A member of the RNA family "mir-8517 microRNA precursor family" from Plutella xylostella, 107 nucleotides long. Rfam links the family to the GO terms miRNA-mediated post-transcriptional gene silencing and RISC complex.
[Rfam]
RNA sequence: UUACUGGACGCUUUAGCUAAUGUACUAUUUUGUCACUCUCUGACAGAGAAAAUUUUUUUCUUUGACAGAGAGGGACAAACAGUUUAAUAUCUAAAGCGUCCAGUAAC
Numbered sequence: 001u002u003a004c005u006g007g008a009c010g011c012u013u014u015a016g017c018u019a020a021u022g023u024a025c026u027a028u029u030u031u032g033u034c035a036c037u038c039u040c041u042g043a044c045a046g047a048g049a050a051a052a053u054u055u056u057u058u059u060c061u062u063u064g065a066c067a068g069a070g071a072g073g074g075a076c077a078a079a080c081a082g083u084u085u086a087a088u089a090u091c092u093a094a095a096g097c098g099u100c101c102a103g104u105a106a107c
Stems, first nucleotide, its partner, number of pairs: 001106006011096006018089002021086002024083003028079001029069007049059004
Taxonomically the source falls in Plutella (Eukaryota, Pancrustacea, Glossata, Neolepidoptera).